Source information:
The record is a 107-nucleotide RNA sequence from Rhizobium sp. YS-1r, which matches "Rhizobiales sRNA Atu_C7" in Rfam. The source organism's lineage runs through Bacteria, Pseudomonadati, Hyphomicrobiales, Rhizobiaceae and Rhizobium. It is annotated as a small RNA.
[Rfam]
RNA sequence: CUUUUUAGGUUCUCCUGGCGCGUCUUCAGCCACAGGUGUCUCCUCCCUCGCCUGUUGGUGAUGCGCCCGCCUCGCCUCGCUUGCAGUUUUGCGCAGCGAGGCUUCUU
Numbered sequence: 001c002u003u004u005u006u007a008g009g010u011u012c013u014c015c016u017g018g019c020g021c022g023u024c025u026u027c028a029g030c031c032a033c034a035g036g037u038g039u040c041u042c043c044u045c046c047c048u049c050g051c052c053u054g055u056u057g058g059u060g061a062u063g064c065g066c067c068c069g070c071c072u073c074g075c076c077u078c079g080c081u082u083g084c085a086g087u088u089u090u091g092c093g094c095a096g097c098g099a100g101g102c103u104u105c106u107u
Base pairs, nucleotide, nucleotide: 017067018066019065020064021063022062023061024060032055033054034053035052036051037050038049074102075101076100077099078098079097080096081095